[Rfam]
RNA: Small nucleolar RNA snoR99
RNA sequence: GUAGUUUUAGGAUGAACAAGUCCCUUAUAUUCAAUUUAUCCAUCUGGUCACUUUGUCAGCUUUGUUGUUUAAUAUAUUCGCUGAUCAUUUUAGGCCAAUGU
Numbered sequence: 001g002u003a004g005u006u007u008u009a010g011g012a013u014g015a016a017c018a019a020g021u022c023c024c025u026u027a028u029a030u031u032c033a034a035u036u037u038a039u040c041c042a043u044c045u046g047g048u049c050a051c052u053u054u055g056u057c058a059g060c061u062u063u064g065u066u067g068u069u070u071a072a073u074a075u076a077u078u079c080g081c082u083g084a085u086c087a088u089u090u091u092a093g094g095c096c097a098a099u100g101u
Stems, first nucleotide, its partner, number of pairs: 041100003044094001055085006